The record is a 90-nucleotide RNA sequence from Actinomyces sp. oral taxon 849, which matches "ZMP/ZTP riboswitch aptamer (pfl RNA motif)" in Rfam.
Pairs were carried over by alignment from the consensus structure, which is taken from published work.
RNA sequence: GGUCCCGGCCGUGACUGGCGAGGGUGGGGCACCACCGGGGAGCGGCCGAGGCCGUCCACGAUCGGGACGUCGCCCGCCUGGGCGUCCCGC
Numbered sequence: 001g002g003u004c005c006c007g008g009c010c011g012u013g014a015c016u017g018g019c020g021a022g023g024g025u026g027g028g029g030c031a032c033c034a035c036c037g038g039g040g041a042g043c044g045g046c047c048g049a050g051g052c053c054g055u056c057c058a059c060g061a062u063c064g065g066g067a068c069g070u071c072g073c074c075c076g077c078c079u080g081g082g083c084g085u086c087c088c089g090c
Base pairs, nucleotide, nucleotide: 003051004050006048007047008046009045010044011043012042015039016038017078018077019076020075024035025034026033027032067085068084069083070082071081
NCBI's taxonomy places the organism under Bacteria, Actinomycetota, Actinomycetes, Actinomycetaceae, Actinomyces sp. oral taxon 849.